[Rfam]
RNA sequence: UCUAUCAAAAUGAAGCAGAAAUGAAUUUUCAAUUGACAAAUACAUAUUGGUGGUGGCGCUUACAACUUAAACAGUCGUGAGUCAGAAUCCUUGUGUAUUUAUAGAAUGAAAAUAAAUUAAAAUACAAGCCCGUC
Numbered sequence: 001u002c003u004a005u006c007a008a009a010a011u012g013a014a015g016c017a018g019a020a021a022u023g024a025a026u027u028u029u030c031a032a033u034u035g036a037c038a039a040a041u042a043c044a045u046a047u048u049g050g051u052g053g054u055g056g057c058g059c060u061u062a063c064a065a066c067u068u069a070a071a072c073a074g075u076c077g078u079g080a081g082u083c084a085g086a087a088u089c090c091u092u093g094u095g096u097a098u099u100u101a102u103a104g105a106a107u108g109a110a111a112a113u114a115a116a117u118u119a120a121a122a123u124a125c126a127a128g129c130c131c132g133u134c
Stems, first nucleotide, its partner, number of pairs: 036102001038100001040098006049091002052088001057085001061081001063077001065075003
Dot-bracket structure: ...................................(.(.((((((...((.(....(...(.(.(((.....))).)...)...)..).)).)))))).).)................................
This 134-nucleotide sequence from Indolivaga capnocytophagoides belongs to the Rfam family "Bacteroidete tryptophan peptide leader RNA". The family's RNA type in Rfam is cis-regulatory leader. Taxonomically the source falls in Indolivaga (Bacteria, Bacteroidota, Bacteroidia, Dysgonomonadaceae).